The record is a 264-nucleotide sequence from Leiothrix lutea, which matches "Small Cajal body specific RNA 6" in Rfam. By type it is a small Cajal body RNA. The family has 17 seed sequences and 1,309 matches in Rfam 15.1. Rfam describes the family as follows. U88 is small Cajal body specific RNA (scaRNA). scaRNAs are a novel class of small nuclear RNAs which localise to the Cajal bodies. U88 is found associated with both fibrillarin and Gar1p and co-localises with coilin in Cajal bodies. Its family is annotated with nucleolus and RNA processing in the Gene Ontology.
[Rfam]
RNA sequence: GGUCUGUGAUGAAUAGUAAAAGGUCUGAUUAUCCUGGGACUUGCAGUUCCAUGCCCACUUCUCCCAGCAGUUUCUCCCCCAGCCAUGGCACAGCAAUGGUGUGGCUGGCAGAGUGUUUGCUGACAGUGUGAGAUGUGCUCAGAUCAUGUUCACCUGGAGCAGCGGAGACAUGACUGGGAUCAGCAUCCAACAGUCCUGCCUGAAGGAGUUUGGGGUCUUGGAUUGGUCUAACUGGACAUGUGAUCUGACUUUUCUGCUGAGACC
Numbered sequence: 001g002g003u004c005u006g007u008g009a010u011g012a013a014u015a016g017u018a019a020a021a022g023g024u025c026u027g028a029u030u031a032u033c034c035u036g037g038g039a040c041u042u043g044c045a046g047u048u049c050c051a052u053g054c055c056c057a058c059u060u061c062u063c064c065c066a067g068c069a070g071u072u073u074c075u076c077c078c079c080c081a082g083c084c085a086u087g088g089c090a091c092a093g094c095a096a097u098g099g100u101g102u103g104g105c106u107g108g109c110a111g112a113g114u115g116u117u118u119g120c121u122g123a124c125a126g127u128g129u130g131a132g133a134u135g136u137g138c139u140c141a142g143a144u145c146a147u148g149u150u151c152a153c154c155u156g157g158a159g160c161a162g163c164g165g166a167g168a169c170a171u172g173a174c175u176g177g178g179a180u181c182a183g184c185a186u187c188c189a190a191c192a193g194u195c196c197u198g199c200c201u202g203a204a205g206g207a208g209u210u211u212g213g214g215g216u217c218u219u220g221g222a223u224u225g226g227u228c229u230a231a232c233u234g235g236a237c238a239u240g241u242g243a244u245c246u247g248a249c250u251u252u253u254c255u256g257c258u259g260a261g262a263c264c
Stems, first nucleotide, its partner, number of pairs: 001264004035247004040242001045219002049215002061208004065122006079108009130188001132187005145172006151165001154162001